This 139-nucleotide RNA sequence from Acanthisitta chloris belongs to the Rfam family "Small nucleolar RNA SNORA8". The source organism's lineage runs through Eukaryota, Teleostomi, Euteleostomi, Sauropsida and Acanthisitta. Pairs were carried over by alignment from the consensus structure, which was predicted with RNAfold.

RNA sequence: UGCACUGUAUGGUGUCUGCACCCAGCAGUGUUCUCCUGAUGGGAUGCUCAUAAAGCAGUGCCACAGCCGUGCAGCAUUCAGCAUCGCUGGGUUUUGUUCUGCUGUGCCUGUCAAACCUGGUAUUUUUGCUGAUAGAGUC
Numbered sequence: 001u002g003c004a005c006u007g008u009a010u011g012g013u014g015u016c017u018g019c020a021c022c023c024a025g026c027a028g029u030g031u032u033c034u035c036c037u038g039a040u041g042g043g044a045u046g047c048u049c050a051u052a053a054a055g056c057a058g059u060g061c062c063a064c065a066g067c068c069g070u071g072c073a074g075c076a077u078u079c080a081g082c083a084u085c086g087c088u089g090g091g092u093u094u095u096g097u098u099c100u101g102c103u104g105u106g107c108c109u110g111u112c113a114a115a116c117c118u119g120g121u122a123u124u125u126u127u128g129c130u131g132a133u134a135g136a137g138u139c
Base pairs, nucleotide, nucleotide: 002061003060004059005058006057007056015054017052018047019046020045022043023042024040026038027037028036064128065127066126069123070122072119073118074117081107082106083105084104
ACA8 is a member of the H/ACA class of snoRNA that guide the sites of modification of uridines to pseudouridines. Clan: SNORA8 clan.